[Rfam]
RNA sequence: AUAAUGAUACUUCCGUUCAGACCGAAAGGUAACGGCUUCUCCAUAAGAAUGGGUUGAGGUGAGAGUCCUAUGA
Numbered sequence: 001a002u003a004a005u006g007a008u009a010c011u012u013c014c015g016u017u018c019a020g021a022c023c024g025a026a027a028g029g030u031a032a033c034g035g036c037u038u039c040u041c042c043a044u045a046a047g048a049a050u051g052g053g054u055u056g057a058g059g060u061g062a063g064a065g066u067c068c069u070a071u072g073a
Stems, first nucleotide, its partner, number of pairs: 012070001013035004036056001040052002057069003
Overview
pemK RNA: a 73-nucleotide RNA sequence. The base pairs follow the family's consensus structure, which is taken from published work.